Bacterial small subunit ribosomal RNA: a 586-nucleotide part of an RNA from Bacteriovorax stolpii. The family has 99 seed sequences and 42,628 matches in Rfam 15.1. The organism belongs to Bacteriovorax, within Bacteria. The match comes from Rfam's covariance-model search (1586 bits).

RNA sequence: UGACGGGGGCCCGCACAAGCGGUGGAUUAUGUGGUUUAAUUCGAAGCAACGCGCAGAACCUUACCUAGGCUUGAAAUCCUACGAAUCCCUUUUAAACGAGGGAGUGCUCUUCGGAGAAUGUAGUGACAGGCGCUGCAUGGCUGUCGUCAGCUCGUGUCGUGAGAUGUUGGGUUAAGUCUCGCAACGAGCGCAACCCCCAUUUUUAGUUGCCAGCAUUAAGUUGGGCACUCUAGAAAGACUGCCUGGGCUAACCAGGAGGAAGGUGGGGAUGACGUCAAGUCCUCAUGGCCCUUAUGUCUAGGGCUACACACGUAAUACAAUGGUCGGUACAAAGGGAUGCGAACUCGCGAGGGGGAGCCAAUCUCAAAAAACCGAUCUCAGUCCGGAUUGGAGUCUGCAACUCGACUCCAUGAAGUUGGAAUCGCUAGUAAUCGCGGAUCAGCACGCCGCGGUGAAUACGUUCCCGGGCCUUGUACACACCGCCCGUCACACCAUGGGAGUUGUUUUUACCUGAAGCCGUGGCCCUAACCGCAAGGAGGGGAGCGUCUACGGUCGAAACGAUGACUGGGGUGAAGUCGUAACAAGG
Numbered sequence: 001u002g003a004c005g006g007g008g009g010c011c012c013g014c015a016c017a018a019g020c021g022g023u024g025g026a027u028u029a030u031g032u033g034g035u036u037u038a039a040u041u042c043g044a045a046g047c048a049a050c051g052c053g054c055a056g057a058a059c060c061u062u063a064c065c066u067a068g069g070c071u072u073g074a075a076a077u078c079c080u081a082c083g084a085a086u087c088c089c090u091u092u093u094a095a096a097c098g099a100g101g102g103a104g105u106g107c108u109c110u111u112c113g114g115a116g117a118a119u120g121u122a123g124u125g126a127c128a129g130g131c132g133c134u135g136c137a138u139g140g141c142u143g144u145c146g147u148c149a150g151c152u153c154g155u156g157u158c159g160u161g162a163g164a165u166g167u168u169g170g171g172u173u174a175a176g177u178c179u180c181g182c183a184a185c186g187a188g189c190g191c192a193a194c195c196c197c198c199a200u201u202u203u204u205a206g207u208u209g210c211c212a213g214c215a216u217u218a219a220g221u222u223g224g225g226c227a228c229u230c231u232a233g234a235a236a237g238a239c240u241g242c243c244u245g246g247g248c249u250a251a252c253c254a255g256g257a258g259g260a261a262g263g264u265g266g267g268g269a270u271g272a273c274g275u276c277a278a279g280u281c282c283u284c285a286u287g288g289c290c291c292u293u294a295u296g297u298c299u300a301g302g303g304c305u306a307c308a309c310a311c312g313u314a315a316u317a318c319a320a321u322g323g324u325c326g327g328u329a330c331a332a333a334g335g336g337a338u339g340c341g342a343a344c345u346c347g348c349g350a351g352g353g354g355g356a357g358c359c360a361a362u363c364u365c366a367a368a369a370a371a372c373c374g375a376u377c378u379c380a381g382u383c384c385g386g387a388u389u390g391g392a393g394u395c396u397g398c399a400a401c402u403c404g405a406c407u408c409c410a411u412g413a414a415g416u417u418g419g420a421a422u423c424g425c426u427a428g429u430a431a432u433c434g435c436g437g438a439u440c441a442g443c444a445c446g447c448c449g450c451g452g453u454g455a456a457u458a459c460g461u462u463c464c465c466g467g468g469c470c471u472u473g474u475a476c477a478c479a480c481c482g483c484c485c486g487u488c489a490c491a492c493c494a495u496g497g498g499a500g501u502u503g504u505u506u507u508u509a510c511c512u513g514a515a516g517c518c519g520u521g522g523c524c525c526u527a528a529c530c531g532c533a534a535g536g537a538g539g540g541g542a543g544c545g546u547c548u549a550c551g552g553u554c555g556a557a558a559c560g561a562u563g564a565c566u567g568g569g570g571u572g573a574a575g576u577c578g579u580a581a582c583a584a585g586g
Stems, first nucleotide, its partner, number of pairs: 001477002003474003007471007015461002019425005024318001026316008034307002040055001042053002064302007077126002079123005086103006105118001107116002129291002132289004138285002140280003143276001145274002150189006156165003168181004195268004200236007210225002214223002239259002242256005322377007334365003339358002344353003384415001389410007431453007480585001482582001485578002490572004495567003500562008509553003516547001518545003523541004529536002